The record is a 133-nucleotide sequence from Trabulsiella odontotermitis, which matches "Molybdenum/Tungsten riboswitch aptamer (Moco RNA motif)" in Rfam. For this family Rfam cites "in molybdenum cofactor and tungsten cofactor metabolism" (Regulski et al., Mol Microbiol, 2008). Taxonomically the source falls in Trabulsiella (Bacteria, Pseudomonadota, Gammaproteobacteria, Enterobacteriaceae).

RNA sequence: GCUAAGGAAAAACACUCUAGCCUUUGUGCCUACGUCCCCGGAUAUGGCGCUCUGGCCGUGGCGAAAGCCACCAGGGUACAGGAAGAAAUGACUGUGCCUCCCGUAUUUGGAAAGGUGUACAUGGCCACACAAC
Numbered sequence: 001g002c003u004a005a006g007g008a009a010a011a012a013c014a015c016u017c018u019a020g021c022c023u024u025u026g027u028g029c030c031u032a033c034g035u036c037c038c039c040g041g042a043u044a045u046g047g048c049g050c051u052c053u054g055g056c057c058g059u060g061g062c063g064a065a066a067g068c069c070a071c072c073a074g075g076g077u078a079c080a081g082g083a084a085g086a087a088a089u090g091a092c093u094g095u096g097c098c099u100c101c102c103g104u105a106u107u108u109g110g111a112a113a114g115g116u117g118u119a120c121a122u123g124g125c126c127a128c129a130c131a132a133c
Stems, first nucleotide, its partner, number of pairs: 003127001012118004017114001020056003026050005034043003058071005074099008084089001100110002